[Rfam]
Nucleotides: 078
Stems, first nucleotide, its partner, number of pairs: 003075001011037002016032004021028002035064001040071004045067003048062003
Number, partner (000 for none) and nucleotide at each position: 001000a002000a003075g004000u005000a006000a007000a008000a009000a010000g011037c012036c013000a014000a015000a016032c017031u018030c019029a020000g021028c022027c023000g024000u025000g026000a027022g028021g029019u030018g031017a032016g033000g034000a035064c036012g037011g038000a039000a040071a041070g042069c043068c044000a045067c046066g047065g048062g049061u050060c051000u052000u053000a054000u055000a056000g057000g058000a059000a060050g061049a062048u063000a064035g065047c066046c067045g068043g069042g070041u071040u072000g073000c074000c075003u076000u077000a078000a
Source information: The record is a 78-nucleotide sequence from Desulfonema limicola, which matches "c-di-GMP-I-GGC riboswitch aptamer" in Rfam. Pairs were carried over by alignment from the consensus structure, which is taken from published work. The family is grouped with related families in Rfam's "c-di-GMP_I riboswitch clan". Gene Ontology term of the family: cyclic-di-GMP binding.